[Rfam]
RNA: BsrC
RNA sequence: AAAAAUCAAAACAACGAAAGCCCUACCUCUCUUUCAUCCUUACGGCUCCGAAGACCGUGCCAGUGCGAAUUGAAAUCUUAAAAUAUAA
Numbered sequence: 001a002a003a004a005a006u007c008a009a010a011a012c013a014a015c016g017a018a019a020g021c022c023c024u025a026c027c028u029c030u031c032u033u034u035c036a037u038c039c040u041u042a043c044g045g046c047u048c049c050g051a052a053g054a055c056c057g058u059g060c061c062a063g064u065g066c067g068a069a070u071u072g073a074a075a076u077c078u079u080a081a082a083a084u085a086u087a088a
Stems, first nucleotide, its partner, number of pairs: 034068002039063002041059005047053001
Dot-bracket structure: .................................((...(((((((.(.....).)))))..))...))....................